[Rfam]
RNA sequence: GUCCCAUCCAGAGCGGCUGAGAGACCUGGCUCGGCGAUGCCGCAGCAACCCCUUUGCGGUGGGUGCUUCCGCCAGGACCGAUGGAGA
Number, nucleotide and partner (000 for none) at each position: 001g000002u086003c000004c084005c083006a082007u081008c080009c000010a000011g000012a000013g043014c042015g041016g040017c039018u000019g000020a000021g032022a031023g030024a000025c000026c075027u074028g073029g072030c023031u022032c021033g000034g000035c000036g000037a000038u000039g017040c016041c015042g014043c013044a067045g066046c065047a064048a000049c063050c062051c059052c058053u000054u000055u000056g000057c000058g052059g051060u000061g000062g050063g049064u047065g046066c045067u044068u000069c000070c000071g079072c029073c028074a027075g026076g000077a000078c000079c071080g008081a007082u006083g005084g004085a000086g002087a000
This 87-nucleotide RNA from Actinomyces sp. oral taxon 448 belongs to the Rfam family "SAM riboswitch aptamer (S box leader)".
About the family: The SAM riboswitch is found upstream of a number of genes which code for proteins involved in methionine or cysteine biosynthesis in Gram-positive bacteria.
Taxonomically the source falls in Actinomyces sp. oral taxon 448 (Bacteria, Actinomycetes, Actinomycetales, Actinomycetaceae).